Source information: A member of the RNA family "azaaromatic riboswitch aptamer (yjdF RNA)" from Nocardia terpenica, 101 nucleotides long. Taxonomically the source falls in Nocardia (Bacteria, Bacillati, Actinomycetota, Actinomycetes).

RNA sequence: CGCCGGACGAGCGAAAACACGGUCCCGGUCGGUAGUCCGGGCGCUCGCUGCGGCGAGUCAGUAACCUCCCUCCCAGGGUGUCCGGCCCGUCCUCUCGAUGC
Numbered sequence: 001c002g003c004c005g006g007a008c009g010a011g012c013g014a015a016a017a018c019a020c021g022g023u024c025c026c027g028g029u030c031g032g033u034a035g036u037c038c039g040g041g042c043g044c045u046c047g048c049u050g051c052g053g054c055g056a057g058u059c060a061g062u063a064a065c066c067u068c069c070c071u072c073c074c075a076g077g078g079u080g081u082c083c084g085g086c087c088c089g090u091c092c093u094c095u096c097g098a099u100g101c
Stems, first nucleotide, its partner, number of pairs: 005092005011086001022042002025040004043058006068078004
Source information
It scores 70 bits against the family's covariance model.